[Rfam]
RNA sequence: AUAUAUCUUCAGGGGGAGGUGUAAGUCCUCACCGGCGGUAAAGCCCGCGAGCCGAUGAAAUUCGGUUGACUUGGUUAGAUUCCAAGGCCGACAGUUAUAGUCUGGAUGGAAGAAGAUGUAG
Numbered sequence: 001a002u003a004u005a006u007c008u009u010c011a012g013g014g015g016g017a018g019g020u021g022u023a024a025g026u027c028c029u030c031a032c033c034g035g036c037g038g039u040a041a042a043g044c045c046c047g048c049g050a051g052c053c054g055a056u057g058a059a060a061u062u063c064g065g066u067u068g069a070c071u072u073g074g075u076u077a078g079a080u081u082c083c084a085a086g087g088c089c090g091a092c093a094g095u096u097a098u099a100g101u102c103u104g105g106a107u108g109g110a111a112g113a114a115g116a117u118g119u120a121g
Stems, first nucleotide, its partner, number of pairs: 003119008017029003031101002033090002035048004043088002051066003070086005092104003

A member of the RNA family "FMN riboswitch aptamer (RFN element)" from Tissierella praeacuta, 121 nucleotides long. The family's consensus secondary structure is taken from published work. Lineage of the source: Bacteria > Bacillati > Tissierellales > Tissierellaceae > Tissierella praeacuta. Rfam links the family to the GO term FMN binding. A search with the family's covariance model found it, with a score of 118 bits.